A member of the RNA family "Small nucleolar RNA SNORD75" from Phoenicopterus ruber, 65 nucleotides long. NCBI's taxonomy places the organism under Eukaryota, Chordata, Craniata, Sauropsida, Phoenicopterus ruber. The match comes from Rfam's covariance-model search (60 bits). Rfam classes the family as a C/D-box small nucleolar RNA.
[Rfam]
RNA sequence: AGCCUAUGAUGGUUUCAGUAUGAGUAGUGGACAGAAGUGAUUUCUGAAAACUCCACGCUGAGGCU
Numbered sequence: 001a002g003c004c005u006a007u008g009a010u011g012g013u014u015u016c017a018g019u020a021u022g023a024g025u026a027g028u029g030g031a032c033a034g035a036a037g038u039g040a041u042u043u044c045u046g047a048a049a050a051c052u053c054c055a056c057g058c059u060g061a062g063g064c065u
Base pairs, nucleotide, nucleotide: 001065002064003063004062
For this family Rfam cites "Purified box C/D snoRNPs are able to reproduce site-specific 2'-O-methylation of target RNA in vitro" (Galardi et al., Mol Cell Biol, 2002).